[Rfam]
RNA: MIR397 microRNA precursor family
RNA sequence: AGUAGAAACAUGAUUGAGUGCAGCGUUGAUGACAAUAUCUGAAAAUUUCUGUUAAGUCUUUUAAUUUGGCAUUUGGGACUUGCUCAUUUUCCAAUUCGUUUUCAUCUACGCUGCACUCAAUCAUGUUUUUA
Numbered sequence: 001a002g003u004a005g006a007a008a009c010a011u012g013a014u015u016g017a018g019u020g021c022a023g024c025g026u027u028g029a030u031g032a033c034a035a036u037a038u039c040u041g042a043a044a045a046u047u048u049c050u051g052u053u054a055a056g057u058c059u060u061u062u063a064a065u066u067u068g069g070c071a072u073u074u075g076g077g078a079c080u081u082g083c084u085c086a087u088u089u090u091c092c093a094a095u096u097c098g099u100u101u102u103c104a105u106c107u108a109c110g111c112u113g114c115a116c117u118c119a120a121u122c123a124u125g126u127u128u129u130u131a
Stems, first nucleotide, its partner, number of pairs: 006128006013121014028106001030104003